Rfam assigns this 86-nucleotide RNA from Castanea mollissima to the family "Small nucleolar RNA R11/Z151". The family has 5 seed sequences and 802 matches in Rfam 15.1. On this family, see Barneche et al., J Mol Biol 2001: "Identification of 66 box C/D snoRNAs in Arabidopsis thaliana: extensive gene duplications generated multiple isoforms predicting new ribosomal RNA 2'-O-methylation sites". The source organism's lineage runs through Eukaryota, Viridiplantae, Tracheophyta, eudicotyledons and Castanea. The family's consensus secondary structure was predicted with PFOLD. The family's RNA type in Rfam is C/D-box small nucleolar RNA.
RNA sequence: GGGCUAAUGAUGAUAACUUCAUUAUCUUAGCGGAUUUCGGUGAGAGAUUUAUCUCGAUGAUCUAAAUGUUACACAUACUGAAGCCC
Numbered sequence: 001g002g003g004c005u006a007a008u009g010a011u012g013a014u015a016a017c018u019u020c021a022u023u024a025u026c027u028u029a030g031c032g033g034a035u036u037u038c039g040g041u042g043a044g045a046g047a048u049u050u051a052u053c054u055c056g057a058u059g060a061u062c063u064a065a066a067u068g069u070u071a072c073a074c075a076u077a078c079u080g081a082a083g084c085c086c
Stems, first nucleotide, its partner, number of pairs: 001086005